Background
Rfam assigns this 139-nucleotide RNA sequence from Paenibacillus sp. 598K to the family "c-di-AMP riboswitch aptamer (ydaO/yuaA leader)".

RNA sequence: AUACUACCGAUGCCGAAUUCCGAGCCCAGGCUUGGAAACGGGGGAUCCAUCCCCGGGUGAAUUAAUUCCGCAAGAAGGAAUUAUAGGGAAACUCUCAACCGAACCCUCAGCUAACCUCGUAGGCACGAAGGGAGAAAAC
Numbered sequence: 001a002u003a004c005u006a007c008c009g010a011u012g013c014c015g016a017a018u019u020c021c022g023a024g025c026c027c028a029g030g031c032u033u034g035g036a037a038a039c040g041g042g043g044g045a046u047c048c049a050u051c052c053c054c055g056g057g058u059g060a061a062u063u064a065a066u067u068c069c070g071c072a073a074g075a076a077g078g079a080a081u082u083a084u085a086g087g088g089a090a091a092c093u094c095u096c097a098a099c100c101g102a103a104c105c106c107u108c109a110g111c112u113a114a115c116c117u118c119g120u121a122g123g124c125a126c127g128a129a130g131g132g133a134g135a136a137a138a139c
Stems, first nucleotide, its partner, number of pairs: 011125004018037008038120006055106003063083007086100002

Lineage of the source: Bacteria > Bacillota > Caryophanales > Paenibacillaceae > Paenibacillus. It scores 69 bits against the family's covariance model.